[Rfam]
Nucleotides: 052
Base pairs, nucleotide, nucleotide: 011028012027013026014025015024016023032047033046034045035044036043037042
Number, partner (000 for none) and nucleotide at each position: 001000c002000c003000g004000u005000g006000g007000g008000a009000c010000a011028c012027c013026u014025u015024c016023c017000c018000c019000c020000a021000a022000c023016g024015g025014a026013a027012g028011g029000c030000g031000c032047c033046u034045a035044u036043c037042u038000g039000a040000a041000a042037g043036g044035a045034u046033a047032g048000c049000c050000a051000a052000c
Annotation: Shown here is a 52-nucleotide sequence from Agaricicola taiwanensis, a member of the family "serC leader". The base pairs follow the family's consensus structure. It scores 69 bits against the family's covariance model. From the family's description: This family is a putative regulatory RNA structure that is found upstream of the serC-serA operon in some alpha-proteobacteria. The final stem of the structure overlaps the ribosome binding site of the serC reading frame. For this family Rfam cites "Evidence for a second class of S-adenosylmethionine riboswitches and other regulatory RNA motifs in alpha-proteobacteria" (Corbino et al., Genome Biol, 2005). Taxonomically the source falls in Agaricicola (Bacteria, Pseudomonadati, Pseudomonadota, Paracoccaceae). It is annotated as a cis-regulatory leader.